A member of the RNA family "mir-218 microRNA precursor family" from Chanos chanos, 83 nucleotides long.
[Rfam]
RNA sequence: UGGCUGUCUCUUGUGCUUGAUCUAACCAUGUGCCGCCACCUACACUCACUCCACAUGGUUCUGUCAAGCACCAGGGACCGCUG
Numbered sequence: 001u002g003g004c005u006g007u008c009u010c011u012u013g014u015g016c017u018u019g020a021u022c023u024a025a026c027c028a029u030g031u032g033c034c035g036c037c038a039c040c041u042a043c044a045c046u047c048a049c050u051c052c053a054c055a056u057g058g059u060u061c062u063g064u065c066a067a068g069c070a071c072c073a074g075g076g077a078c079c080g081c082u083g
Stems, first nucleotide, its partner, number of pairs: 001083004006078004013071007024060008
Background: Rfam 15.1 lists 1,392 matches to the family in 648 species. The literature on the family includes a 2005 paper in Genes Dev by Chen et al., "The developmental miRNA profiles of zebrafish as determined by small RNA cloning".